Shown here is an 89-nucleotide sequence from Centaurea solstitialis, a member of the family "Small nucleolar RNA R16". The source organism's lineage runs through Eukaryota, Embryophyta, Magnoliopsida, asterids and Centaurea. Pairs were carried over by alignment from the consensus structure, which was predicted with PFOLD. A reference for the family is Galardi et al. (2002), "Purified box C/D snoRNPs are able to reproduce site-specific 2'-O-methylation of target RNA in vitro", Mol Cell Biol. It scores 65 bits against the family's covariance model.
RNA sequence: AACGGCAAAUGAAGAAAUUUCAGUUUUAUGCUUAACUCACUGAUUUAACAAUGGUGACAACAAAACUCCGCUUAUUAUCUGAUGCCGAU
Numbered sequence: 001a002a003c004g005g006c007a008a009a010u011g012a013a014g015a016a017a018u019u020u021c022a023g024u025u026u027u028a029u030g031c032u033u034a035a036c037u038c039a040c041u042g043a044u045u046u047a048a049c050a051a052u053g054g055u056g057a058c059a060a061c062a063a064a065a066c067u068c069c070g071c072u073u074a075u076u077a078u079c080u081g082a083u084g085c086c087g088a089u
Base pairs, nucleotide, nucleotide: 003087004086005085006084007083